[Rfam]
RNA sequence: AAAUGUGAGGGCGAUCUGGCUGGAACAUCUGUCACCCCACUGAUCCCCAGGGUUGAUUCGGCUGAUCUCGCUGGUUAGGUGGGUGUCCUCUUCCUCCCUCACCGCUCCGUGUGCGUCCCUCCCGAAGCUGCGCACUCAGUGAAGAGGACAAUCAUCCCCGAUAGAGGAGGACCAUUCUUUGGGCAAGGGUAUAAGAGUAGCUGCGCUCCCCUGCUAGAACCUCCAGACAGGCUCUCAAGGUCCAUUUGUAGGAGAACGUAGGGUAGUCAAGCUUCUAAGACUCCAGACAAAUCCAAAUGAGGCGCUGCACGUGGUAGUCUGCCGUUCUUA
Numbered sequence: 001a002a003a004u005g006u007g008a009g010g011g012c013g014a015u016c017u018g019g020c021u022g023g024a025a026c027a028u029c030u031g032u033c034a035c036c037c038c039a040c041u042g043a044u045c046c047c048c049a050g051g052g053u054u055g056a057u058u059c060g061g062c063u064g065a066u067c068u069c070g071c072u073g074g075u076u077a078g079g080u081g082g083g084u085g086u087c088c089u090c091u092u093c094c095u096c097c098c099u100c101a102c103c104g105c106u107c108c109g110u111g112u113g114c115g116u117c118c119c120u121c122c123c124g125a126a127g128c129u130g131c132g133c134a135c136u137c138a139g140u141g142a143a144g145a146g147g148a149c150a151a152u153c154a155u156c157c158c159c160g161a162u163a164g165a166g167g168a169g170g171a172c173c174a175u176u177c178u179u180u181g182g183g184c185a186a187g188g189g190u191a192u193a194a195g196a197g198u199a200g201c202u203g204c205g206c207u208c209c210c211c212u213g214c215u216a217g218a219a220c221c222u223c224c225a226g227a228c229a230g231g232c233u234c235u236c237a238a239g240g241u242c243c244a245u246u247u248g249u250a251g252g253a254g255a256a257c258g259u260a261g262g263g264u265a266g267u268c269a270a271g272c273u274u275c276u277a278a279g280a281c282u283c284c285a286g287a288c289a290a291a292u293c294c295a296a297a298u299g300a301g302g303c304g305c306u307g308c309a310c311g312u313g314g315u316a317g318u319c320u321g322c323c324g325u326u327c328u329u330a
Base pairs, nucleotide, nucleotide: 003106005102006101007100008099009098010097011096013093014092018090019089025086026085027084028083029082030081031080032079033078035074036073037070039068042067043066044065045064047061048060116170117169118167119166120165121164122139124137125136127135140161141159146157147156148155200272201271202270206266207265209263210262211261212260213259214258221254222253223252224251227249228248229247230246231245296329297328299325301323302322303321304318305317306316307315308314
Rfam assigns this 330-nucleotide RNA from Nyctereutes procyonoides to the family "7SK RNA".